A member of the RNA family "Flavo-1 RNA" from Flavobacterium psychrophilum, 72 nucleotides long. The organism belongs to Flavobacterium psychrophilum, within Bacteria. The family's RNA type in Rfam is small RNA.
RNA sequence: UUUUAGCCCAGAUAGCAGUGAAAAUCCUCGCCAUUUUUCUUGGCGAGAUUGCAACGGAUAGCUGGAUUAGCU
Numbered sequence: 001u002u003u004u005a006g007c008c009c010a011g012a013u014a015g016c017a018g019u020g021a022a023a024a025u026c027c028u029c030g031c032c033a034u035u036u037u038u039c040u041u042g043g044c045g046a047g048a049u050u051g052c053a054a055c056g057g058a059u060a061g062c063u064g065g066a067u068u069a070g071c072u
Base pairs, nucleotide, nucleotide: 009064010063011062013060014059018055019054023050024049025048026047029045030044031043032042033041
Rfam 15.1 lists 7,497 matches to the family in 411 species.